[Rfam]
RNA sequence: CGUCAUGAGUCCCAGCGCUCGCUGACUCCCGCGCAGGUGCGGCGAUCGGCGAGCACAGCCCCGGCUGGCUGGGCGGCAACCCUCCACCGCGGUGGGGUGCCCCGGGUGAGGACAAGGUCGACCGCGCAGUGCGGCCGGCAAGCGCGGGGC
Numbered sequence: 001c002g003u004c005a006u007g008a009g010u011c012c013c014a015g016c017g018c019u020c021g022c023u024g025a026c027u028c029c030c031g032c033g034c035a036g037g038u039g040c041g042g043c044g045a046u047c048g049g050c051g052a053g054c055a056c057a058g059c060c061c062c063g064g065c066u067g068g069c070u071g072g073g074c075g076g077c078a079a080c081c082c083u084c085c086a087c088c089g090c091g092g093u094g095g096g097g098u099g100c101c102c103c104g105g106g107u108g109a110g111g112a113c114a115a116g117g118u119c120g121a122c123c124g125c126g127c128a129g130u131g132c133g134g135c136c137g138g139c140a141a142g143c144g145c146g147g148g149g150c
Stems, first nucleotide, its partner, number of pairs: 002113003009074001011073006075101003080097003084092002117139004122134005